Nucleotides: 222
Base pairs, nucleotide, nucleotide: 006064007063008062009061071086072085073084074083075082076081101136102135103134104133105132160195161194162193163192164191166189167188168187170183171182172181173180206220207219208218209217
Number, partner (000 for none) and nucleotide at each position: 001000u002000g003000c004000u005000c006064c007063g008062g009061g010000c011000c012000g013000u014000a015000a016000a017000a018000g019000a020000c021000u022000c023000a024000a025000g026000a027000a028000a029000c030000c031000g032000g033000g034000u035000a036000a037000a038000a039000a040000a041000c042000c043000c044000u045000u046000c047000c048000a049000a050000c051000c052000a053000a054000a055000c056000c057000a058000a059000a060000c061009c062008c063007c064006g065000c066000g067000u068000u069000u070000g071086u072085c073084a074083c075082u076081c077000g078000g079000g080000u081076g082075g083074g084073u085072g086071a087000a088000a089000c090000g091000g092000g093000c094000c095000g096000u097000u098000g099000u100000g101136g102135c103134u104133g105132g106000c107000g108000u109000g110000g111000g112000c113000g114000u115000c116000g117000u118000c119000c120000c121000a122000c123000c124000g125000u126000g127000c128000a129000g130000g131000c132105u133104c134103g135102g136101c137000a138000c139000g140000g141000a142000c143000g144000a145000c146000c147000c148000c149000a150000c151000a152000c153000a154000u155000a156000c157000u158000u159000c160195g161194g162193c163192c164191c165000c166189c167188g168187c169000c170183g171182g172181g173180a174000c175000u176000g177000c178000c179000a180173u181172c182171c183170c184000a185000g186000u187168g188167c189166g190000a191164g192163g193162g194161c195160c196000u197000g198000a199000c200000c201000g202000a203000c204000g205000a206220g207219g208218a209217a210000c211000g212000g213000a214000a215000c216000c217209u218208u219207c220206c221000c222000c